[Rfam]
RNA sequence: GUGUUUUCGAACCCUUAUCAUUCUUUCGCCGCACUGAUAUUUAAAGCAUAAGUGGACGGAGAACUGAUAAAGGGCUAGUUGACUA
Numbered sequence: 001g002u003g004u005u006u007u008c009g010a011a012c013c014c015u016u017a018u019c020a021u022u023c024u025u026u027c028g029c030c031g032c033a034c035u036g037a038u039a040u041u042u043a044a045a046g047c048a049u050a051a052g053u054g055g056a057c058g059g060a061g062a063a064c065u066g067a068u069a070a071a072g073g074g075c076u077a078g079u080u081g082a083c084u085a
Stems, first nucleotide, its partner, number of pairs: 012074004016069005021063006029055002
mir-184 microRNA precursor family: an 85-nucleotide RNA from Clunio marinus. The literature on the family includes a 2005 paper in Genes Dev by Chen et al., "The developmental miRNA profiles of zebrafish as determined by small RNA cloning". Rfam 15.1 lists 948 matches to the family in 823 species. The base pairs follow the family's consensus structure, which was predicted with PFOLD.